[Rfam]
RNA: MIR2275 microRNA precursor family
RNA sequence: UGGUCGAAUGUGAGGAUUGGAGGGAAUUAAACAAAUUUGCUUUGUUCUUCCUUUUGUUUAAUUUCCUCCAAUAUCUCAUGUUUGAACU
Numbered sequence: 001u002g003g004u005c006g007a008a009u010g011u012g013a014g015g016a017u018u019g020g021a022g023g024g025a026a027u028u029a030a031a032c033a034a035a036u037u038u039g040c041u042u043u044g045u046u047c048u049u050c051c052u053u054u055u056g057u058u059u060a061a062u063u064u065c066c067u068c069c070a071a072u073a074u075c076u077c078a079u080g081u082u083u084g085a086a087c088u
Stems, first nucleotide, its partner, number of pairs: 004085005011078004016072006023065008032056004